Overview
Rfam assigns this 74-nucleotide RNA from Jannaschia seosinensis to the family "Singlet oxygen resistance RNA X". A reference for the family is Peng et al. (2016), "Regulation of a polyamine transporter by the conserved 3' UTR-derived sRNA SorX confers resistance to singlet oxygen and organic hydroperoxides in Rhodobacter sphaeroides", RNA Biol. SorX (RSs2461)like SorY is a singlet oxygen induced sRNA that counteracts oxidative stress by targeting mRNA for a transporter in Rhodobacter. It also has an impact on resistance against organic hydroperoxides. It targets SD sequence of potA mRNA via an aSD sequence. Its family is annotated with response to photooxidative stress in the Gene Ontology. Rfam classes the family as a small RNA. The match comes from Rfam's covariance-model search (71 bits).
RNA sequence: AACCGGCGCAUCUGCGGAGUCUCAGAUGCAUCCUCCCUGUUGGACUCGGCCGGACCUCGUGUCCGGCCUCUUUU
Number, nucleotide and partner (000 for none) at each position: 001a000002a000003c000004c000005g000006g000007c000008g029009c028010a027011u026012c025013u024014g023015c000016g000017g000018a000019g000020u000021c000022u000023c014024a013025g012026a011027u010028g009029c008030a000031u000032c000033c000034u000035c000036c000037c000038u000039g000040u000041u000042g000043g000044a000045c000046u000047c000048g068049g067050c066051c065052g064053g063054a062055c061056c000057u000058c000059g000060u000061g055062u054063c053064c052065g051066g050067c049068c048069u000070c000071u000072u000073u000074u000